[Rfam]
RNA sequence: GUAGGAAACUAAAUGAACGAAGUUCAUUUAUAGGAAUGUUUCCGACGAAUUGCCGCUGACCGAAGGGAGGGGGCGUUACAUUAU
Numbered sequence: 001g002u003a004g005g006a007a008a009c010u011a012a013a014u015g016a017a018c019g020a021a022g023u024u025c026a027u028u029u030a031u032a033g034g035a036a037u038g039u040u041u042c043c044g045a046c047g048a049a050u051u052g053c054c055g056c057u058g059a060c061c062g063a064a065g066g067g068a069g070g071g072g073g074c075g076u077u078a079c080a081u082u083a084u
Stems, first nucleotide, its partner, number of pairs: 004043006012028006052074003056070002060066002

Rfam assigns this 84-nucleotide RNA from Eubacterium sp. CAG:161 to the family "GA-cis RNA". Taxonomically the source falls in Eubacterium (Bacteria, Bacillati, Bacillota, Clostridia). A search with the family's covariance model found it, with a score of 76 bits. It is annotated as a small RNA. Pairs were carried over by alignment from the consensus structure, which is taken from published work.